[Rfam]
RNA sequence: AACAGAGUAGGAAAUAAAGCGUCAAGUGCUGAAAGGAUGGGAUGUUGCCUUUCGGACGAAGUAUGAGGUAAAAGAAGCACGAGCUGGCUUUUCUAAUCAUACGCGGUUUUGUUUUCGCAUUCGCUGCA
Numbered sequence: 001a002a003c004a005g006a007g008u009a010g011g012a013a014a015u016a017a018a019g020c021g022u023c024a025a026g027u028g029c030u031g032a033a034a035g036g037a038u039g040g041g042a043u044g045u046u047g048c049c050u051u052u053c054g055g056a057c058g059a060a061g062u063a064u065g066a067g068g069u070a071a072a073a074g075a076a077g078c079a080c081g082a083g084c085u086g087g088c089u090u091u092u093c094u095a096a097u098c099a100u101a102c103g104c105g106g107u108u109u110u111g112u113u114u115u116c117g118c119a120u121u122c123g124c125u126g127c128a
Base pairs, nucleotide, nucleotide: 003126004125005124010116011115012114013113014112015111016110017109018108019107020105021104022103026057027056029055030054031053032052033051034050035049036048040122041121042120043119044118061102062101063100064099065098066097
THF (Tetrahydrofolate) riboswitch aptamer: a 128-nucleotide sequence from Candidatus Enterococcus dunnyi. The match comes from Rfam's covariance-model search (78 bits). The source organism's lineage runs through Bacteria, Bacillati, Bacillota, Lactobacillales and Enterococcus. About the family: Tetrahydrofolate (THF) riboswitch was first reported for Ames et al. as an RNA motif in 5' untranslated (5'-UTR)regions of folate transport and biosynthesis genes in Firmicutes genomes.